The record is a 103-nucleotide RNA, which matches "DUF3577 RNA" in Rfam.
RNA sequence: CGAAUCGGACAGCGCAGGAAACUGCGUCAAACUCGCCUGCAACCCCGGCAACACCCCGCAAGCGGUGUGGCGACUGAAACCUCCGCCCAUGAGGCGCGACCGU
Numbered sequence: 001c002g003a004a005u006c007g008g009a010c011a012g013c014g015c016a017g018g019a020a021a022c023u024g025c026g027u028c029a030a031a032c033u034c035g036c037c038u039g040c041a042a043c044c045c046c047g048g049c050a051a052c053a054c055c056c057c058g059c060a061a062g063c064g065g066u067g068u069g070g071c072g073a074c075u076g077a078a079a080c081c082u083c084c085g086c087c088c089a090u091g092a093g094g095c096g097c098g099a100c101c102g103u
Stems, first nucleotide, its partner, number of pairs: 012027006033073005052067004057062001084098003087094002
It is annotated as a cis-regulatory element. The family's consensus secondary structure is taken from published work.